[Rfam]
RNA sequence: AAAUCAUCAAGAGAGAUUGAGGGACUGGCCCUGUGAAAUCUCAGCAACCUGCUAUAUGUGUGGUGCUAAUUCCAGAAAGAUGAAGC
Numbered sequence: 001a002a003a004u005c006a007u008c009a010a011g012a013g014a015g016a017u018u019g020a021g022g023g024a025c026u027g028g029c030c031c032u033g034u035g036a037a038a039u040c041u042c043a044g045c046a047a048c049c050u051g052c053u054a055u056a057u058g059u060g061u062g063g064u065g066c067u068a069a070u071u072c073c074a075g076a077a078a079g080a081u082g083a084a085g086c
Stems, first nucleotide, its partner, number of pairs: 004083005013042005021031003025075004043067004048063002050060003071078001
Notes
SAM riboswitch aptamer (S box leader): an 86-nucleotide RNA from Cetobacterium sp. 2A. Lineage of the source: Bacteria > Fusobacteriati > Fusobacteriia > Fusobacteriales > Cetobacterium. Clan: SAM clan.